[Rfam]
RNA sequence: AACCUCCAGCUAGGCUGGAGGUUCCGUAAAGCUUUCAGCUUUGAGCCAGUUAUAAAAACCCCUUUUGAUUUGUUAAAACACCUUGCGGUCUGGCAACUGCAAUGGUCAAACAAGAAAUCAAAAG
Numbered sequence: 001a002a003c004c005u006c007c008a009g010c011u012a013g014g015c016u017g018g019a020g021g022u023u024c025c026g027u028a029a030a031g032c033u034u035u036c037a038g039c040u041u042u043g044a045g046c047c048a049g050u051u052a053u054a055a056a057a058a059c060c061c062c063u064u065u066u067g068a069u070u071u072g073u074u075a076a077a078a079c080a081c082c083u084u085g086c087g088g089u090c091u092g093g094c095a096a097c098u099g100c101a102a103u104g105g106u107c108a109a110a111c112a113a114g115a116a117a118u119c120a121a122a123a124g
Stems, first nucleotide, its partner, number of pairs: 001023010028042006062124009071112004078106002081104001083102007
Shown here is a 124-nucleotide RNA from Yersinia enterocolitica, a member of the family "STnc490 Hfq binding RNA".
The source organism's lineage runs through Bacteria, Pseudomonadati, Gammaproteobacteria, Yersiniaceae and Yersinia enterocolitica subsp. enterocolitica.
The family's RNA type in Rfam is small RNA.
The family's consensus secondary structure was predicted with WAR.